[Rfam]
RNA: Archaeal small subunit ribosomal RNA, nucleotides 2643 to 2784
RNA sequence: CCGCCCGUCACACUCAGGAAGCUGGUUCUGCUCCAAGUCGUUACCCUAACCUUCGGGAGGGGGGCGCCUAAAGCAGGGCUAGUGACCAGAGUGAAGUCGUAACAAGGUAUCCCUACUGGAAGGUGGGGAUGGAUCACCUCCU
Numbered sequence: 001c002c003g004c005c006c007g008u009c010a011c012a013c014u015c016a017g018g019a020a021g022c023u024g025g026u027u028c029u030g031c032u033c034c035a036a037g038u039c040g041u042u043a044c045c046c047u048a049a050c051c052u053u054c055g056g057g058a059g060g061g062g063g064g065c066g067c068c069u070a071a072a073g074c075a076g077g078g079c080u081a082g083u084g085a086c087c088a089g090a091g092u093g094a095a096g097u098c099g100u101a102a103c104a105a106g107g108u109a110u111c112c113c114u115a116c117u118g119g120a121a122g123g124u125g126g127g128g129a130u131g132g133a134u135c136a137c138c139u140c141c142u
Base pairs, nucleotide, nucleotide: 001106003103006099007098009096011093012092013091014090015089017087018086021083022082023081024080025079026078027077028076029075030074031073032072036069037068039066040065041064042063044061045060046059108131109130110129111128112127113126114125115124116123117122